Shown here is a 284-nucleotide part of an RNA from Acaromyces ingoldii, a member of the family "Eukaryotic large subunit ribosomal RNA". The literature on the family includes a 2001 paper in Science by Yusupov et al., "Crystal structure of the ribosome at 5.5 A resolution". The source organism's lineage runs through Eukaryota, Dikarya, Basidiomycota, Cryptobasidiaceae and Acaromyces.
[Rfam]
RNA sequence: GAGUCUAACAUGUCUGCGAGUCUUUGGGUGGCAAACCCGUGGGCGCAAUGAAAGUGAAUGCAGGUGGGAUCCUUCGGGAGCACCAUCGACCGGUCUCGAAGCUUUAUGUGGAAGGAUCUGAGUAAGAGCAUAUAUGUUGGGACCCGAAAGAUGGUGAACUAUGCCUGAAUAGGGUGAAGCCAGAGGAAACUCUGGUGGAGGCUCGUAGCGGUUCUGACGUGCAAAUCGAUCGUCAAAUUUGGGUAUAGGGGCGAAAGACUAAUCGAACCAUCUAGUAGCUGGUU
Numbered sequence: 001g002a003g004u005c006u007a008a009c010a011u012g013u014c015u016g017c018g019a020g021u022c023u024u025u026g027g028g029u030g031g032c033a034a035a036c037c038c039g040u041g042g043g044c045g046c047a048a049u050g051a052a053a054g055u056g057a058a059u060g061c062a063g064g065u066g067g068g069a070u071c072c073u074u075c076g077g078g079a080g081c082a083c084c085a086u087c088g089a090c091c092g093g094u095c096u097c098g099a100a101g102c103u104u105u106a107u108g109u110g111g112a113a114g115g116a117u118c119u120g121a122g123u124a125a126g127a128g129c130a131u132a133u134a135u136g137u138u139g140g141g142a143c144c145c146g147a148a149a150g151a152u153g154g155u156g157a158a159c160u161a162u163g164c165c166u167g168a169a170u171a172g173g174g175u176g177a178a179g180c181c182a183g184a185g186g187a188a189a190c191u192c193u194g195g196u197g198g199a200g201g202c203u204c205g206u207a208g209c210g211g212u213u214c215u216g217a218c219g220u221g222c223a224a225a226u227c228g229a230u231c232g233u234c235a236a237a238u239u240u241g242g243g244u245a246u247a248g249g250g251g252c253g254a255a256a257g258a259c260u261a262a263u264c265g266a267a268c269c270a271u272c273u274a275g276u277a278g279c280u281g282g283u284u
Base pairs, nucleotide, nucleotide: 005140006139007138008137009136010135011134012133013132015130016129017128020044021043022042025039026038027037028036029035048055049054063087064086065085066084067083070079071078072077089123090122091120092119093118094116095115096114101109143282144281146279150272151271152270153269154268155267159248160247161246162245163244164243165242166241167240168239169238170236172204173203174202175201179196180195181194182193183192184191185190208233209232210231211230213229214228216227217226250260251259